[Rfam]
RNA sequence: ACGGAGGACUAAGGAGGCUAAGUCUGAUGAAGCAAGACUCUACAGUACAAAGCUCUUAGAAAAAAGGGUUGGAGAGAGCGGCUUUCAUUGGAGAAUAUCACAUGGCUGACUGUAGUACCCAACAUUC
Number, nucleotide and partner (000 for none) at each position: 001a000002c059003g056004g055005a054006g053007g000008a000009c000010u000011a000012a000013g000014g000015a000016g000017g043018c000019u000020a000021a039022g038023u037024c036025u035026g000027a000028u000029g000030a000031a000032g000033c000034a000035a025036g024037a023038c022039u021040c000041u000042a000043c017044a000045g000046u000047a000048c000049a000050a000051a000052g000053c006054u005055c004056u003057u000058a000059g002060a000061a000062a000063a000064a000065a000066g120067g119068g118069u117070u000071g000072g000073a000074g000075a000076g000077a111078g110079c108080g107081g106082c105083u104084u000085u102086c000087a000088u000089u100090g099091g098092a000093g000094a000095a000096u000097a000098u091099c090100a089101c000102a085103u000104g083105g082106c081107u080108g079109a000110c078111u077112g000113u000114a000115g000116u000117a069118c068119c067120c066121a000122a000123c000124a000125u000126u000127c000

This 127-nucleotide RNA from Molossus molossus belongs to the Rfam family "Small Cajal body specific RNA 4". The family is grouped with related families in Rfam's "SCARNA4 clan". On this family, see Darzacq et al., EMBO J 2002: "Cajal body-specific small nuclear RNAs: a novel class of 2'-O-methylation and pseudouridylation guide RNAs". Rfam's curators write: scaRNAs are a specific class of small nuclear RNAs which localise to the Cajal bodies and guide the modification of RNA polymerase II transcribed spliceosomal RNAs U1, U2, U4, U5 and U12. By type it is a small Cajal body RNA.